[Rfam]
RNA sequence: CUCCAUGCAUCCCUGGGACCUGCCAGCGUGGCAGCUUCCCUUCCUAGCCAUGGAAGAGCAGAUAGUUUCUUGCUAAUUGGCAAAGCUGCCACCAUUCAAUUGGGGCAGGUCUCUGACUUGGGCAAGUGACAUGU
Numbered sequence: 001c002u003c004c005a006u007g008c009a010u011c012c013c014u015g016g017g018a019c020c021u022g023c024c025a026g027c028g029u030g031g032c033a034g035c036u037u038c039c040c041u042u043c044c045u046a047g048c049c050a051u052g053g054a055a056g057a058g059c060a061g062a063u064a065g066u067u068u069c070u071u072g073c074u075a076a077u078u079g080g081c082a083a084a085g086c087u088g089c090c091a092c093c094a095u096u097c098a099a100u101u102g103g104g105g106c107a108g109g110u111c112u113c114u115g116a117c118u119u120g121g122g123c124a125a126g127u128g129a130c131a132u133g134u
Stems, first nucleotide, its partner, number of pairs: 002054006015040004020034005071131002074128001077125003081120003086108003092103003